[Rfam]
RNA sequence: CUGCAUAUUUUUUAUACAGCGCCAUGAAAAGUUAGCUGAAAAACAUUCUGUACCAAGAAUUUUUUUUGCUUCUUGCGCAACGUCAGUUUACUUACUACAAGUAAUGGGUAGUAUGUACGCCGACUAUUUCCUCACUCUGGGGUUA
Numbered sequence: 001c002u003g004c005a006u007a008u009u010u011u012u013u014a015u016a017c018a019g020c021g022c023c024a025u026g027a028a029a030a031g032u033u034a035g036c037u038g039a040a041a042a043a044c045a046u047u048c049u050g051u052a053c054c055a056a057g058a059a060u061u062u063u064u065u066u067u068g069c070u071u072c073u074u075g076c077g078c079a080a081c082g083u084c085a086g087u088u089u090a091c092u093u094a095c096u097a098c099a100a101g102u103a104a105u106g107g108g109u110a111g112u113a114u115g116u117a118c119g120c121c122g123a124c125u126a127u128u129u130c131c132u133c134a135c136u137c138u139g140g141g142g143u144u145a
Base pairs, nucleotide, nucleotide: 038078042074043073045071050069051068052067055064082124083123084122086120087119089117090116091115093113094112095111096110097109098108100105128145131142132141133140
RNA: Pseudomonas sRNA P14
Organism: Pseudomonas asplenii